[Rfam]
RNA sequence: AUUACCUUUAAUACGGUCCAGAGAGGCUGAAAAGGGAUACUUGAUAGGUGAAGCUAUUAUCUUUUUAAUAUCUUUGUUAUUUCAUGCCCUUUUGUCUAAUCUGACGAAAGGGCAUUUUGUU
Numbered sequence: 001a002u003u004a005c006c007u008u009u010a011a012u013a014c015g016g017u018c019c020a021g022a023g024a025g026g027c028u029g030a031a032a033a034g035g036g037a038u039a040c041u042u043g044a045u046a047g048g049u050g051a052a053g054c055u056a057u058u059a060u061c062u063u064u065u066u067a068a069u070a071u072c073u074u075u076g077u078u079a080u081u082u083c084a085u086g087c088c089c090u091u092u093u094g095u096c097u098a099a100u101c102u103g104a105c106g107a108a109a110g111g112g113c114a115u116u117u118u119g120u121u
Stems, first nucleotide, its partner, number of pairs: 003037001005035005014029005047078007055070005084115013
RNA: PyrR binding site